[Rfam]
RNA sequence: GGCUGGUCCGAGUGCAGUGGUGUUUGCAACUAAUUGAUCACAUCCAGUUACAGAUUUCUUUCUUUUUUUUUCUUUCCCUCUCCACUCACACUGCUUCACUUGACCAGCCUUAA
Number, nucleotide and partner (000 for none) at each position: 001g109002g108003c107004u106005g105006g104007u103008c102009c000010g101011a100012g000013u000014g097015c000016a092017g091018u090019g089020g000021u000022g087023u000024u000025u000026g000027c000028a075029a074030c000031u000032a071033a070034u000035u000036g000037a000038u000039c000040a000041c000042a000043u000044c000045c000046a000047g000048u000049u000050a000051c000052a000053g000054a000055u000056u000057u000058c000059u000060u000061u000062c000063u000064u000065u000066u000067u000068u000069u000070u033071u032072c000073u000074u029075u028076c000077c000078c000079u000080c000081u000082c000083c000084a000085c000086u000087c022088a000089c019090a018091c017092u016093g000094c000095u000096u000097c014098a000099c000100u011101u010102g008103a007104c006105c005106a004107g003108c002109c001110u000111u000112a000113a000